[Rfam]
RNA sequence: GAGAACUAUUUAACUGAGAGGAUCAAAUGACUGAAGUAACGAUCAGAAAGGGUCCCCUUUGAUACUGCGAGGAGUAUUUGAAAUGUUAAGAUUUUGGAUAUUCUAAAGCUCGCUAAAGUCAUCUGAGUUACAACCCUACGUAAGAAAGAAUAAAAAAUUUCUUGCAGGAAAUCCGAACCAGAGGUGGUCGAGUUGUAUAUAGGGUGGAAGGCUAUAAA
Numbered sequence: 001g002a003g004a005a006c007u008a009u010u011u012a013a014c015u016g017a018g019a020g021g022a023u024c025a026a027a028u029g030a031c032u033g034a035a036g037u038a039a040c041g042a043u044c045a046g047a048a049a050g051g052g053u054c055c056c057c058u059u060u061g062a063u064a065c066u067g068c069g070a071g072g073a074g075u076a077u078u079u080g081a082a083a084u085g086u087u088a089a090g091a092u093u094u095u096g097g098a099u100a101u102u103c104u105a106a107a108g109c110u111c112g113c114u115a116a117a118g119u120c121a122u123c124u125g126a127g128u129u130a131c132a133a134c135c136c137u138a139c140g141u142a143a144g145a146a147a148g149a150a151u152a153a154a155a156a157a158u159u160u161c162u163u164g165c166a167g168g169a170a171a172u173c174c175g176a177a178c179c180a181g182a183g184g185u186g187g188u189c190g191a192g193u194u195g196u197a198u199a200u201a202g203g204g205u206g207g208a209a210g211g212c213u214a215u216a217a218a
Stems, first nucleotide, its partner, number of pairs: 018056001020055003023051002032045003057210004067113004071104014120206005129197006135168003142163006172191001174190002177188004
This 218-nucleotide sequence from Candidatus Epulonipiscioides saccharophilum belongs to the Rfam family "Group II catalytic intron D1-D4-5". For this family Rfam cites "The ins and outs of group II introns" (Bonen and Vogel, Trends Genet, 2001). The source organism's lineage runs through Bacteria, Bacillota, Lachnospirales, Lachnospiraceae and Candidatus Epulonipiscioides. Group II introns are found in rRNA, tRNA and mRNA of organelles in fungi, plants and protists, and also in mRNA in bacteria. Rfam 15.1 lists 720 matches to the family in 418 species.